Rfam assigns this 102-nucleotide RNA sequence from Bacillus solimangrovi to the family "Purine riboswitch aptamer".

RNA sequence: ACAGACAAAGUUAAUAAACCUCAUAUAAUAUUAGGGAUAUGGCCUAAAAGUUUCUACCUAGUUACCGCAAAUGACUGGACUAUGAGGGAGAGUGUGCUGAAU
Numbered sequence: 001a002c003a004g005a006c007a008a009a010g011u012u013a014a015u016a017a018a019c020c021u022c023a024u025a026u027a028a029u030a031u032u033a034g035g036g037a038u039a040u041g042g043c044c045u046a047a048a049a050g051u052u053u054c055u056a057c058c059u060a061g062u063u064a065c066c067g068c069a070a071a072u073g074a075c076u077g078g079a080c081u082a083u084g085a086g087g088g089a090g091a092g093u094g095u096g097c098u099g100a101a102u
Stems, first nucleotide, its partner, number of pairs: 019087007029049001031047005058078007
From the family's description: Riboswitches are metabolite binding domains within certain messenger RNAs that serve as precision sensors for their corresponding targets. The match comes from Rfam's covariance-model search (86 bits). The base pairs follow the family's consensus structure, which is taken from published work. A reference for the family is Mandal et al. (2003), "Riboswitches Control Fundamental Biochemical Pathways in Bacillus subtilis and Other Bacteria", Cell. Its family is annotated with purine nucleobase biosynthetic process in the Gene Ontology.